[Rfam]
RNA sequence: CAGACCUGAGUGUGGCAGGACUACCCGCUAAACUUAAGCAUAUUACUCAGCGGAGGAAAAGAAAACAACCGUGAUUCUCUCAGUCAGCGGCGAGCGAAGAGGGAUCCAACUCGUUGCCGAAUCGGGUCUUACAGGGCCUUGAGUUGUGGCAAAAGCGUCACUUUGUGGUUGAUGCGGGAAUGGUGAAAUUCAAGCGCAAAGCAAACCCGUUGCUGAAUACAACCCUUCAUGUGAGUAUUGAGCCAAAGAAGGUGUUAGCCCAUUGAGCCAUGAACCCGAGCGUCUCACCAAGUGUACCAAGAGAGUAGCACUGUUUGGGAAUGCAGUGUCAAGCUGGCAGGUAUUUGUCUGCUAAAGUUAAAUACAGAGUAGGAAGACCGAUAGCGAACAAGUAGCGUGAGCGAAAGUUUGAAAAGCACUUUGGAAAGAGAGUGACAUAGAACCUGAAGUCGUGACAAUGACAAU
Numbered sequence: 001c002a003g004a005c006c007u008g009a010g011u012g013u014g015g016c017a018g019g020a021c022u023a024c025c026c027g028c029u030a031a032a033c034u035u036a037a038g039c040a041u042a043u044u045a046c047u048c049a050g051c052g053g054a055g056g057a058a059a060a061g062a063a064a065a066c067a068a069c070c071g072u073g074a075u076u077c078u079c080u081c082a083g084u085c086a087g088c089g090g091c092g093a094g095c096g097a098a099g100a101g102g103g104a105u106c107c108a109a110c111u112c113g114u115u116g117c118c119g120a121a122u123c124g125g126g127u128c129u130u131a132c133a134g135g136g137c138c139u140u141g142a143g144u145u146g147u148g149g150c151a152a153a154a155g156c157g158u159c160a161c162u163u164u165g166u167g168g169u170u171g172a173u174g175c176g177g178g179a180a181u182g183g184u185g186a187a188a189u190u191c192a193a194g195c196g197c198a199a200a201g202c203a204a205a206c207c208c209g210u211u212g213c214u215g216a217a218u219a220c221a222a223c224c225c226u227u228c229a230u231g232u233g234a235g236u237a238u239u240g241a242g243c244c245a246a247a248g249a250a251g252g253u254g255u256u257a258g259c260c261c262a263u264u265g266a267g268c269c270a271u272g273a274a275c276c277c278g279a280g281c282g283u284c285u286c287a288c289c290a291a292g293u294g295u296a297c298c299a300a301g302a303g304a305g306u307a308g309c310a311c312u313g314u315u316u317g318g319g320a321a322u323g324c325a326g327u328g329u330c331a332a333g334c335u336g337g338c339a340g341g342u343a344u345u346u347g348u349c350u351g352c353u354a355a356a357g358u359u360a361a362a363u364a365c366a367g368a369g370u371a372g373g374a375a376g377a378c379c380g381a382u383a384g385c386g387a388a389c390a391a392g393u394a395g396c397g398u399g400a401g402c403g404a405a406a407g408u409u410u411g412a413a414a415a416g417c418a419c420u421u422u423g424g425a426a427a428g429a430g431a432g433u434g435a436c437a438u439a440g441a442a443c444c445u446g447a448a449g450u451c452g453u454g455a456c457a458a459u460g461a462c463a464a465u
Base pairs, nucleotide, nucleotide: 024055025053026052027051028050029049035042036041065072066071076104077103078102079101080100087095088094108359109358110357111356114152115151116150117149118148119145120144122142123141124140125139126138128136157297158296159294160293161292162291166290167289168288169287171281173279176276177275180271181270182269183268184267189241191240192239193238244248251261252260308329309328310327311326312325313324314323336353337352338351339350340349395402396401419430420429421428422427
RNA: Eukaryotic large subunit ribosomal RNA, nucleotides 1 to 465